Description
This 310-nucleotide part of an RNA from Cyanidioschyzon merolae belongs to the Rfam family "Eukaryotic large subunit ribosomal RNA". Clan: LSU clan. On this family, see Yusupov et al., Science 2001: "Crystal structure of the ribosome at 5.5 A resolution".
RNA sequence: GAGUCUACCGCGCAAGCGAGUAUUCGGGCGGCAACCCCGAGUGCGCAACGAAAGUGGAGGGCGCGCCCAGCGCGCCCGAGCUGGGAUCGGCGGCGGAGCGCCGCCGUGCACCAGCGGCCGGCCAUGAACUUGCAGUGAACGGCCCGCGCGGGAGCCUGCGCGGUGGGACCCGAAAGAUGGUGAACUAUGCCUGAGUAGGGCGAAGCCAGAGGAAACUCUGGUGGAGGCUCGUAGCGAUUCUGACGUGCAAAUCGAUCGUCGAACUUGGGUAUAGGGGCGAAAGACUCAUCGAACCAUCUAGUAGCUGGUU
Numbered sequence: 001g002a003g004u005c006u007a008c009c010g011c012g013c014a015a016g017c018g019a020g021u022a023u024u025c026g027g028g029c030g031g032c033a034a035c036c037c038c039g040a041g042u043g044c045g046c047a048a049c050g051a052a053a054g055u056g057g058a059g060g061g062c063g064c065g066c067c068c069a070g071c072g073c074g075c076c077c078g079a080g081c082u083g084g085g086a087u088c089g090g091c092g093g094c095g096g097a098g099c100g101c102c103g104c105c106g107u108g109c110a111c112c113a114g115c116g117g118c119c120g121g122c123c124a125u126g127a128a129c130u131u132g133c134a135g136u137g138a139a140c141g142g143c144c145c146g147c148g149c150g151g152g153a154g155c156c157u158g159c160g161c162g163g164u165g166g167g168a169c170c171c172g173a174a175a176g177a178u179g180g181u182g183a184a185c186u187a188u189g190c191c192u193g194a195g196u197a198g199g200g201c202g203a204a205g206c207c208a209g210a211g212g213a214a215a216c217u218c219u220g221g222u223g224g225a226g227g228c229u230c231g232u233a234g235c236g237a238u239u240c241u242g243a244c245g246u247g248c249a250a251a252u253c254g255a256u257c258g259u260c261g262a263a264c265u266u267g268g269g270u271a272u273a274g275g276g277g278c279g280a281a282a283g284a285c286u287c288a289u290c291g292a293a294c295c296a297u298c299u300a301g302u303a304g305c306u307g308g309u310u
Stems, first nucleotide, its partner, number of pairs: 005166010016155002020044003025039004048055002080115005088106005117149002119146003122142002128136002169308002172305001176298006185274011196262001198230004205222007234259004239255002242253002276286002